RNA: RtT RNA
RNA sequence: CUCAGUUGGCAGAACAGUUGACUUUUAAUCAAUGGGUCGCAGGUUCGAGCCGAGCAGAGCGAGACAACAACGCGCCAGCGUUGACCCGAAGGGCGAGUCCAGAGGACGAGUCAUCCCGCACGACCCACCG
Numbered sequence: 001c002u003c004a005g006u007u008g009g010c011a012g013a014a015c016a017g018u019u020g021a022c023u024u025u026u027a028a029u030c031a032a033u034g035g036g037u038c039g040c041a042g043g044u045u046c047g048a049g050c051c052g053a054g055c056a057g058a059g060c061g062a063g064a065c066a067a068c069a070a071c072g073c074g075c076c077a078g079c080g081u082u083g084a085c086c087c088g089a090a091g092g093g094c095g096a097g098u099c100c101a102g103a104g105g106a107c108g109a110g111u112c113a114u115c116c117c118g119c120a121c122g123a124c125c126c127a128c129c130g
Base pairs, nucleotide, nucleotide: 017119018118020116023113035094037093038092044090045089046088047087051061052060068083069082070081071080072079073078